[Rfam]
RNA sequence: UUGCGAUGAUGAAUGAUUAUUGUGCCGGAGAUGGAUCGGAGAUCCAUUGGUGAUGGUUCACAAACCCUCUAAGAAGUUCUGAGCAA
Number, nucleotide and partner (000 for none) at each position: 001u086002u085003g084004c083005g000006a000007u000008g000009a000010u000011g000012a000013a000014u000015g000016a000017u000018u000019a000020u000021u000022g000023u000024g000025c000026c000027g000028g000029a000030g000031a000032u000033g000034g000035a000036u000037c000038g000039g000040a000041g000042a000043u000044c000045c000046a000047u000048u000049g000050g000051u000052g000053a000054u000055g000056g000057u000058u000059c000060a000061c000062a000063a000064a000065c000066c000067c000068u000069c000070u000071a000072a000073g000074a000075a000076g000077u000078u000079c000080u000081g000082a000083g004084c003085a002086a001
The family of this 86-nucleotide sequence from Dioscorea zingiberensis is "Small nucleolar RNA U61".
By type it is a C/D-box small nucleolar RNA.
The base pairs follow the family's consensus structure, which was predicted with WAR.
Rfam links the family to the GO terms RNA processing and nucleolus.
Clan: SNORD61 clan.
Taxonomically the source falls in Dioscorea (Eukaryota, Streptophyta, Euphyllophyta, Dioscoreaceae).